The family of this 106-nucleotide RNA from Tetracentron sinense is "MIR394 microRNA precursor family". The match comes from Rfam's covariance-model search (71 bits).
[Rfam]
RNA sequence: GUUACAGAGCCAUUUUGGCAUUCUGUCUACCUCCAUUGAAAAUUAUCGUUGCCCAAAGAAAAUGCAAAUUUUGGAGGCAGCCAGCAUGCCAAAAUGGCUCUGUAAA
Numbered sequence: 001g002u003u004a005c006a007g008a009g010c011c012a013u014u015u016u017g018g019c020a021u022u023c024u025g026u027c028u029a030c031c032u033c034c035a036u037u038g039a040a041a042a043u044u045a046u047c048g049u050u051g052c053c054c055a056a057a058g059a060a061a062a063u064g065c066a067a068a069u070u071u072u073g074g075a076g077g078c079a080g081c082c083a084g085c086a087u088g089c090c091a092a093a094a095u096g097g098c099u100c101u102g103u104a105a106a
Base pairs, nucleotide, nucleotide: 011096015092016091017090018089019088020087024083025082027080028079030077031076032075033074034073

Annotation
The organism belongs to Tetracentron, within Eukaryota. Gene Ontology terms of the family: RISC complex and miRNA-mediated post-transcriptional gene silencing.